[Rfam]
Nucleotides: 062
Base pairs, nucleotide, nucleotide: 002013003012004011031054032053033052034051035050036049037048038047
Number, partner (000 for none) and nucleotide at each position: 001000a002013g003012g004011u005000a006000g007000a008000u009000g010000c011004a012003c013002c014000c015000u016000g017000a018000u019000a020000a021000a022000u023000a024000u025000u026000u027000a028000a029000u030000c031054g032053c033052c034051c035050c036049a037048g038047c039000c040000g041000u042000u043000a044000a045000a046000a047038g048037c049036u050035g051034g052033g053032g054031c055000u056000u057000u058000u059000u060000a061000u062000u

The record is a 62-nucleotide sequence from Crinalium epipsammum, which matches "Nitrogen stress-induced RNA 1" in Rfam. The pairing is the family consensus, mapped onto this sequence. For this family Rfam cites "Heterocyst-specific transcription of NsiR1, a non-coding RNA encoded in a tandem array of direct repeats in cyanobacteria" (Ionescu et al., J Mol Biol, 2010). By type it is a small RNA. A search with the family's covariance model found it, with a score of 51 bits. NCBI's taxonomy places the organism under Bacteria, Bacillati, Cyanophyceae, Gomontiellaceae, Crinalium epipsammum.